[Rfam]
RNA sequence: CAGCCGUGAUGAUGACUUAGGACACCUUUGAUAACCGUGAAACUCUUGUUUAAAGCUGAGCUGC
Number, nucleotide and partner (000 for none) at each position: 001c063002a062003g061004c060005c000006g000007u000008g000009a000010u000011g000012a000013u000014g000015a000016c000017u000018u000019a000020g000021g000022a000023c000024a000025c000026c000027u000028u000029u000030g000031a000032u000033a000034a000035c000036c000037g000038u000039g000040a000041a000042a000043c000044u000045c000046u000047u000048g000049u000050u000051u000052a000053a000054a000055g000056c000057u000058g000059a000060g004061c003062u002063g001064c000